[Rfam]
RNA: mir-2774 microRNA precursor family
RNA sequence: AUAACAUUUGAACCAUCGGUCUACCGAGCAAUAUCCUCCGCUCGGUAGAAGAUCCUUUCGUCGU
Numbered sequence: 001a002u003a004a005c006a007u008u009u010g011a012a013c014c015a016u017c018g019g020u021c022u023a024c025c026g027a028g029c030a031a032u033a034u035c036c037u038c039c040g041c042u043c044g045g046u047a048g049a050a051g052a053u054c055c056u057u058u059c060g061u062c063g064u
Stems, first nucleotide, its partner, number of pairs: 004064002010058003015053003020049010